TPP riboswitch aptamer (THI element): a 130-nucleotide RNA from Candidatus Symbiopectobacterium sp. Dall1.0. Taxonomically the source falls in Symbiopectobacterium (Bacteria, Gammaproteobacteria, Enterobacterales, ant, tsetse, mealybug, aphid, etc. endosymbionts). Vitamin B(1) in its active form thiamin pyrophosphate (TPP) is an essential coenzyme that is synthesised by coupling of pyrimidine and thiazole moieties in bacteria.

RNA sequence: ACGUUCUCAACGGGGUGCAGGCCGUUUGUUGGCGAUAUCGCAUUGUCAACGCACGGUAUUUAUGCUGAGAAAAUACCCGUCGAACCUGAUCCGGUUAAUACCGGCUAAGGGAUUUGAGAGUGCAUUCGCC
Numbered sequence: 001a002c003g004u005u006c007u008c009a010a011c012g013g014g015g016u017g018c019a020g021g022c023c024g025u026u027u028g029u030u031g032g033c034g035a036u037a038u039c040g041c042a043u044u045g046u047c048a049a050c051g052c053a054c055g056g057u058a059u060u061u062a063u064g065c066u067g068a069g070a071a072a073a074u075a076c077c078c079g080u081c082g083a084a085c086c087u088g089a090u091c092c093g094g095u096u097a098a099u100a101c102c103g104g105c106u107a108a109g110g111g112a113u114u115u116g117a118g119a120g121u122g123c124a125u126u127c128g129c130c
Base pairs, nucleotide, nucleotide: 006118007117008116009115010114011079012078013077014076016073017065018064019063021061085110086109087108091104092103093102094101